[Rfam]
The record is a 77-nucleotide sequence, which matches "RAGATH-10 RNA" in Rfam. On this family, see Weinberg et al., Nat Chem Biol 2015: "New classes of self-cleaving ribozymes revealed by comparative genomics analysis".

RNA sequence: AAAACCUCGUCUUGUGUGUUAUAGGAAUACAUACGUCCCCUAGCGGAUGGCAAUACCGCCAAAGACGAGGAGAGAGU
Numbered sequence: 001a002a003a004a005c006c007u008c009g010u011c012u013u014g015u016g017u018g019u020u021a022u023a024g025g026a027a028u029a030c031a032u033a034c035g036u037c038c039c040c041u042a043g044c045g046g047a048u049g050g051c052a053a054u055a056c057c058g059c060c061a062a063a064g065a066c067g068a069g070g071a072g073a074g075a076g077u
Stems, first nucleotide, its partner, number of pairs: 005070008016030005036047003048061004

The base pairs follow the family's consensus structure, which is taken from published work.